[Rfam]
RNA sequence: AGGUCAUUUCAAAGAGGGCUUGCAUGGCUGUGAAACCAGCAGCUCUUAACGCGAUGACCUAAUAUUGAAAUCCUCUGCAGGAUGCCAUGAGCACUUAGUGUGCUAUGUGGCCUAUUUCUGAGGAGAUAGACAU
Numbered sequence: 001a002g003g004u005c006a007u008u009u010c011a012a013a014g015a016g017g018g019c020u021u022g023c024a025u026g027g028c029u030g031u032g033a034a035a036c037c038a039g040c041a042g043c044u045c046u047u048a049a050c051g052c053g054a055u056g057a058c059c060u061a062a063u064a065u066u067g068a069a070a071u072c073c074u075c076u077g078c079a080g081g082a083u084g085c086c087a088u089g090a091g092c093a094c095u096u097a098g099u100g101u102g103c104u105a106u107g108u109g110g111c112c113u114a115u116u117u118c119u120g121a122g123g124a125g126a127u128a129g130a131c132a133u
Stems, first nucleotide, its partner, number of pairs: 002059006014047007023039001026037002073125004079119004087106003091103004
Rfam assigns this 133-nucleotide RNA sequence from Mauremys mutica to the family "Small nucleolar RNA SNORA25". The base pairs follow the family's consensus structure, which was predicted with RNAfold. It is annotated as an H/ACA-box small nucleolar RNA. A search with the family's covariance model found it, with a score of 96 bits. Gene Ontology terms of the family: nucleolus and RNA processing. ACA25 is a member of the H/ACA class of snoRNA that guide the sites of modification of uridines to pseudouridines.